[Rfam]
This 83-nucleotide RNA from Bombyx mori belongs to the Rfam family "mir-2807 microRNA precursor family". The source organism's lineage runs through Eukaryota, Metazoa, Arthropoda, Ditrysia and Bombyx.
RNA sequence: UUAACUCAAAUUUGUAAAGAGUUGGAACUUUACCUACGUUUGCUGCCAGGGGCGCUGUUCCAACUCCAUACAAAUUUGAGUUA
Numbered sequence: 001u002u003a004a005c006u007c008a009a010a011u012u013u014g015u016a017a018a019g020a021g022u023u024g025g026a027a028c029u030u031u032a033c034c035u036a037c038g039u040u041u042g043c044u045g046c047c048a049g050g051g052g053c054g055c056u057g058u059u060c061c062a063a064c065u066c067c068a069u070a071c072a073a074a075u076u077u078g079a080g081u082u083a
Stems, first nucleotide, its partner, number of pairs: 008077009020065009033051003038046002